[Rfam]
About this RNA:
The record is a 66-nucleotide RNA from Trichococcus palustris, which matches "RAGATH-18 RNA" in Rfam. The match comes from Rfam's covariance-model search (47 bits).
RNA sequence: CCCUCGGAGUGUUACCUCAAACAGAAGUACUCCGAAUGGACCAAAUCGGACACGAAGAACAGGGAA
Numbered sequence: 001c002c003c004u005c006g007g008a009g010u011g012u013u014a015c016c017u018c019a020a021a022c023a024g025a026a027g028u029a030c031u032c033c034g035a036a037u038g039g040a041c042c043a044a045a046u047c048g049g050a051c052a053c054g055a056a057g058a059a060c061a062g063g064g065a066a
Stems, first nucleotide, its partner, number of pairs: 001064004009053005022048001024046001031040003

Lineage of the source: Bacteria > Bacillati > Bacillota > Bacilli > Trichococcus.